[Rfam]
RNA sequence: GGGGUAUGCAGCUGUAACCGUAAGGGGAAAGCAAAGUAAUUUGCGCAGCCUUUAAGGGAUGUUACUCAUGCCACGAGAAAUUCAAUAUAUAAGAGCUCUCGUCUAUUGCAAGAUAUAAGUUACUGAGCAUGUUAUGUUGGAAAGAUAACAUGCUGUAGUAAUAAUGAAUUGCGGAACGCCUUAGGCUGGAAACAGAGCAGGGUUAGCAAUCGCUUGUAUACGGUGCAAAGUUUGCGAUGAGCGAUUAGUAUAUCUCGAAUCUCGUCAAGCAUGGUAAGC
Numbered sequence: 001g002g003g004g005u006a007u008g009c010a011g012c013u014g015u016a017a018c019c020g021u022a023a024g025g026g027g028a029a030a031g032c033a034a035a036g037u038a039a040u041u042u043g044c045g046c047a048g049c050c051u052u053u054a055a056g057g058g059a060u061g062u063u064a065c066u067c068a069u070g071c072c073a074c075g076a077g078a079a080a081u082u083c084a085a086u087a088u089a090u091a092a093g094a095g096c097u098c099u100c101g102u103c104u105a106u107u108g109c110a111a112g113a114u115a116u117a118a119g120u121u122a123c124u125g126a127g128c129a130u131g132u133u134a135u136g137u138u139g140g141a142a143a144g145a146u147a148a149c150a151u152g153c154u155g156u157a158g159u160a161a162u163a164a165u166g167a168a169u170u171g172c173g174g175a176a177c178g179c180c181u182u183a184g185g186c187u188g189g190a191a192a193c194a195g196a197g198c199a200g201g202g203u204u205a206g207c208a209a210u211c212g213c214u215u216g217u218a219u220a221c222g223g224u225g226c227a228a229a230g231u232u233u234g235c236g237a238u239g240a241g242c243g244a245u246u247a248g249u250a251u252a253u254c255u256c257g258a259a260u261c262u263c264g265u266c267a268a269g270c271a272u273g274g275u276a277a278g279c
Stems, first nucleotide, its partner, number of pairs: 019056001021054006082258002086252005092246001097240002099237004103230002106228005113219008122159003126154010137144002162166001168210005178203004186195003
Shown here is a 279-nucleotide RNA from Plasmodium berghei, a member of the family "Protozoan signal recognition particle RNA". For this family Rfam cites "Kinship in the SRP RNA family" (Rosenblad et al., RNA Biol, 2009). The family is grouped with related families in Rfam's "SRP clan".